A member of the RNA family "MIR1027 microRNA precursor family" from Physcomitrium patens, 142 nucleotides long. Rfam links the family to the GO terms RISC complex and miRNA-mediated post-transcriptional gene silencing. For this family Rfam cites "Common functions for diverse small RNAs of land plants" (Axtell et al., Plant Cell, 2007). Rfam's curators put it in the seed alignment. NCBI's taxonomy places the organism under Eukaryota, Viridiplantae, Bryopsida, Funariales, Physcomitrium. Rfam 15.1 lists 3 matches to the family in 2 species.

RNA sequence: GUGCAAGAGCAGAUACUUAAGUCGAAGAGCAUCUUUCUAUCUUCUCUUCCAAUCUAUUGAUCUGCCCUUCCAAUACUAUCAGAUCAAUAGAUUGGAAGAGCAGAUCGAAAAAUGCUCUCACCUUAAGGAGAGACAGCGACUC
Numbered sequence: 001g002u003g004c005a006a007g008a009g010c011a012g013a014u015a016c017u018u019a020a021g022u023c024g025a026a027g028a029g030c031a032u033c034u035u036u037c038u039a040u041c042u043u044c045u046c047u048u049c050c051a052a053u054c055u056a057u058u059g060a061u062c063u064g065c066c067c068u069u070c071c072a073a074u075a076c077u078a079u080c081a082g083a084u085c086a087a088u089a090g091a092u093u094g095g096a097a098g099a100g101c102a103g104a105u106c107g108a109a110a111a112a113u114g115c116u117c118u119c120a121c122c123u124u125a126a127g128g129a130g131a132g133a134c135a136g137c138g139a140c141u142c
Stems, first nucleotide, its partner, number of pairs: 016127006024119002027117006034110004039105004044100021